[Rfam]
Glycine riboswitch aptamer: a 93-nucleotide RNA from Megasphaera paucivorans. The organism belongs to Megasphaera, within Bacteria. It scores 57 bits against the family's covariance model.
RNA sequence: GAAAUUAACUCUGGAGAGUCCCUGGUGGGAGCCGAAGGUGUAAGGAAUGUUAUAUAUUCUCUAUCUCUCAGGCAAAAGGACAGAGGUGAUGUA
Numbered sequence: 001g002a003a004a005u006u007a008a009c010u011c012u013g014g015a016g017a018g019u020c021c022c023u024g025g026u027g028g029g030a031g032c033c034g035a036a037g038g039u040g041u042a043a044g045g046a047a048u049g050u051u052a053u054a055u056a057u058u059c060u061c062u063a064u065c066u067c068u069c070a071g072g073c074a075a076a077a078g079g080a081c082a083g084a085g086g087u088g089a090u091g092u093a
Stems, first nucleotide, its partner, number of pairs: 006088002009085005020029003031073003034069002038067001040065001044060007